[Rfam]
RNA: Histone 3' UTR stem-loop
Organism: Gadus morhua
RNA sequence: AAAACGGCUCUUUUAAGAGCCACCCACACAAAACAUAAGCAGCAAU
Numbered sequence: 001a002a003a004a005c006g007g008c009u010c011u012u013u014u015a016a017g018a019g020c021c022a023c024c025c026a027c028a029c030a031a032a033a034c035a036u037a038a039g040c041a042g043c044a045a046u
Stems, first nucleotide, its partner, number of pairs: 006021006